[Rfam]
RNA: Small nucleolar RNA SNORA25
Organism: Fukomys damarensis
RNA sequence: AGGUAAUUUUAAAGAGGACUUGGGCUGUGAAUCACAAUUUCUUAAUACUAUGACCAAAGAUUGAAUUUCUCCACAGGAUUCCACAGUCAUUCAACAGUGCUAUGUUUUCCUAAGGAGGUACGAGA
Numbered sequence: 001a002g003g004u005a006a007u008u009u010u011a012a013a014g015a016g017g018a019c020u021u022g023g024g025c026u027g028u029g030a031a032u033c034a035c036a037a038u039u040u041c042u043u044a045a046u047a048c049u050a051u052g053a054c055c056a057a058a059g060a061u062u063g064a065a066u067u068u069c070u071c072c073a074c075a076g077g078a079u080u081c082c083a084c085a086g087u088c089a090u091u092c093a094a095c096a097g098u099g100c101u102a103u104g105u106u107u108u109c110c111u112a113a114g115g116a117g118g119u120a121c122g123a124g125a
Stems, first nucleotide, its partner, number of pairs: 002055003006051002014043005020037002023035001024033001068118005075111004083103001085101002088099004